Nucleotides: 134
Stems, first nucleotide, its partner, number of pairs: 003057006018044004023039004069127005075121004084112012
Number, partner (000 for none) and nucleotide at each position: 001000u002000g003057a004056g005055c006054a007053g008052g009000u010000u011000g012000c013000a014000g015000u016000u017000c018044c019043a020042g021041u022000c023039c024038u025037u026036u027000g028000u029000u030000u031000u032000c033000g034000u035000g036026g037025g038024a039023g040000u041021g042020c043019u044018g045000g046000c047000a048000u049000a050000a051000c052008c053007c054006u055005g056004c057003u058000g059000a060000a061000a062000a063000c064000a065000a066000a067000u068000a069127u070126g071125u072124g073123c074000c075121a076120a077119u078118c079000a080000u081000u082000u083000u084112u085111u086110a087109u088108u089107u090106u091105a092104c093103c094102u095101c096000a097000u098000u099000c100000g101095g102094a103093g104092g105091u106090a107089a108088a109087a110086u111085g112084a113000u114000c115000a116000c117000u118078g119077a120076u121075u122000a123073g124072c125071a126070c127069a128000g129000a130000c131000a132000g133000u134000u
About this RNA
Small nucleolar RNA SNORA69: a 134-nucleotide RNA sequence from Sorex araneus. By type it is an H/ACA-box small nucleolar RNA. U69 is a member of the H/ACA class of small nucleolar RNAs (snoRNAs) which act as guides in the the modification of uridines to pseudouridines.